Notes
The record is a 128-nucleotide RNA from Desulfitobacterium dichloroeliminans, which matches "c-di-AMP riboswitch aptamer (ydaO/yuaA leader)" in Rfam. The source organism's lineage runs through Bacteria, Bacillati, Clostridia, Desulfitobacterium and Desulfitobacterium dichloroeliminans.
RNA sequence: AACUUCAUAAGGCUUAAUUUCCCAGAGGGAAAACGGGGGAACCAAUAUUGGGGUGAAUCGCUUCUUAGCGUAGAGCAUGUUUCAGCUCGAAUCCGUCAGCUAACCUCGUCAGCACUGAGACACAUGAA
Numbered sequence: 001a002a003c004u005u006c007a008u009a010a011g012g013c014u015u016a017a018u019u020u021c022c023c024a025g026a027g028g029g030a031a032a033a034c035g036g037g038g039g040a041a042c043c044a045a046u047a048u049u050g051g052g053g054u055g056a057a058u059c060g061c062u063u064c065u066u067a068g069c070g071u072a073g074a075g076c077a078u079g080u081u082u083c084a085g086c087u088c089g090a091a092u093c094c095g096u097c098a099g100c101u102a103a104c105c106u107c108g109u110c111a112g113c114a115c116u117g118a119g120a121c122a123c124a125u126g127a128a
Base pairs, nucleotide, nucleotide: 012113013112014111018032019031020030021029022028033109034108035107036106037105038104043050044049051094052093053092059070060069061068062067073088074087075086076085
Rfam's curators write: This family represents a conserved RNA structure found upstream of the ydaO and yuaA genes in Bacillus subtilis and related genes in other bacteria.